[Rfam]
RNA sequence: UAAUGAAGGAAGCAUGGUGAUGUGCACGGAAAUUGAACAACUUUGGGUCCGCAUGUCUGCUCUCUCUGAUUCUCUCUGAUUUGAGGGCCUGGUUACGACCCACAUCA
Numbered sequence: 001u002a003a004u005g006a007a008g009g010a011a012g013c014a015u016g017g018u019g020a021u022g023u024g025c026a027c028g029g030a031a032a033u034u035g036a037a038c039a040a041c042u043u044u045g046g047g048u049c050c051g052c053a054u055g056u057c058u059g060c061u062c063u064c065u066c067u068g069a070u071u072c073u074c075u076c077u078g079a080u081u082u083g084a085g086g087g088c089c090u091g092g093u094u095a096c097g098a099c100c101c102a103c104a105u106c107a
Stems, first nucleotide, its partner, number of pairs: 012025004045090005055080003059074001
This 107-nucleotide sequence from Prunus armeniaca belongs to the Rfam family "Small nucleolar RNA snoR100". Gene Ontology terms of the family: RNA processing and nucleolus. The match comes from Rfam's covariance-model search (88 bits).